[Rfam]
RNA: Pseudomonas sRNA P18
Organism: Pseudomonas sp. FeS53a
RNA sequence: GGCGGCGUAUUGCUCAGCCCGCUGCUGAUCUACGCCCUGGCGGCGCUGCUGGUGACCGGCGUACUGCGCCUGGCGCUGCAGCGGCUGGGCCUGGCGCGCUGGAUCUGGCACGAGGCGCUGUUCGAUACCGCCCUC
Numbered sequence: 001g002g003c004g005g006c007g008u009a010u011u012g013c014u015c016a017g018c019c020c021g022c023u024g025c026u027g028a029u030c031u032a033c034g035c036c037c038u039g040g041c042g043g044c045g046c047u048g049c050u051g052g053u054g055a056c057c058g059g060c061g062u063a064c065u066g067c068g069c070c071u072g073g074c075g076c077u078g079c080a081g082c083g084g085c086u087g088g089g090c091c092u093g094g095c096g097c098g099c100u101g102g103a104u105c106u107g108g109c110a111c112g113a114g115g116c117g118c119u120g121u122u123c124g125a126u127a128c129c130g131c132c133c134u135c
Stems, first nucleotide, its partner, number of pairs: 002067004007062002010059002013051001015048004019043005068133001075097002079093003098131002101128001103126003108121003